[Rfam]
RNA sequence: AUCGAAAAAGGCAAACUUUCCGAAAGGUUAGGACGCAAAGCUCAGGGUCUAAUAUUCUUUUGGGUUUAUGACCUGGAAGAAUGAUGAUUGCCUGGCUGCCAAGU
Number, nucleotide and partner (000 for none) at each position: 001a104002u000003c000004g100005a000006a000007a000008a000009a000010g000011g036012c035013a000014a000015a000016c031017u030018u000019u000020c027021c026022g000023a000024a000025a000026g021027g020028u000029u000030a017031g016032g000033a000034c090035g012036c011037a000038a000039a097040g096041c095042u094043c000044a093045g092046g091047g088048u087049c086050u000051a000052a000053u000054a000055u000056u000057c000058u000059u000060u000061u000062g000063g000064g000065u000066u000067u000068a000069u000070g000071a000072c000073c000074u000075g000076g000077a000078a000079g000080a000081a000082u000083g000084a000085u000086g049087a048088u047089u000090g034091c046092c045093u044094g042095g041096c040097u039098g000099c000100c004101a000102a000103g000104u001

The record is a 104-nucleotide sequence from Virgibacillus sp. MSP4-1, which matches "c-di-GMP-I-GGC riboswitch aptamer" in Rfam.
Taxonomically the source falls in Virgibacillus (Bacteria, Bacillota, Bacilli, Caryophanales).
A search with the family's covariance model found it, with a score of 64 bits.
For this family Rfam cites "Bioinformatic analysis of riboswitch structures uncovers variant classes with altered ligand specificity" (Weinberg et al., Proc Natl Acad Sci U S A, 2017).